[Rfam]
RNA: MIR2629 microRNA precursor family
RNA sequence: AAUUGAAGUUUCUGCGGCAGUUAACUGCCAAAGUUUUUCUCGGUAGUUAACUGCCGAGGGACAU
Numbered sequence: 001a002a003u004u005g006a007a008g009u010u011u012c013u014g015c016g017g018c019a020g021u022u023a024a025c026u027g028c029c030a031a032a033g034u035u036u037u038u039c040u041c042g043g044u045a046g047u048u049a050a051c052u053g054c055c056g057a058g059g060g061a062c063a064u
Base pairs, nucleotide, nucleotide: 011060012059015056016055017054018053019052020051021050022049023048024047025046026045027044028043